The family of this 64-nucleotide RNA sequence is "D12-methyl RNA". By type it is a small RNA.
RNA sequence: CGUUGCGGGUAGCAAAUCCGCAACGGGUGAGGUCGGCACAGCAUACACCGACAGGGCGGGAAUG
Numbered sequence: 001c002g003u004u005g006c007g008g009g010u011a012g013c014a015a016a017u018c019c020g021c022a023a024c025g026g027g028u029g030a031g032g033u034c035g036g037c038a039c040a041g042c043a044u045a046c047a048c049c050g051a052c053a054g055g056g057c058g059g060g061a062a063u064g
Base pairs, nucleotide, nucleotide: 001025002024003023004022005021006020007019008018032052033051034050035049036048
It is one of the family's seed sequences.